[Rfam]
RNA sequence: UUAUUAGUGUAAGUAUAUUCCAUGUAAUAUUUGGUACAUAUUUAUCCUAAAA
Numbered sequence: 001u002u003a004u005u006a007g008u009g010u011a012a013g014u015a016u017a018u019u020c021c022a023u024g025u026a027a028u029a030u031u032u033g034g035u036a037c038a039u040a041u042u043u044a045u046c047c048u049a050a051a052a
Stems, first nucleotide, its partner, number of pairs: 006048002009045004014040003018036001020034002022031001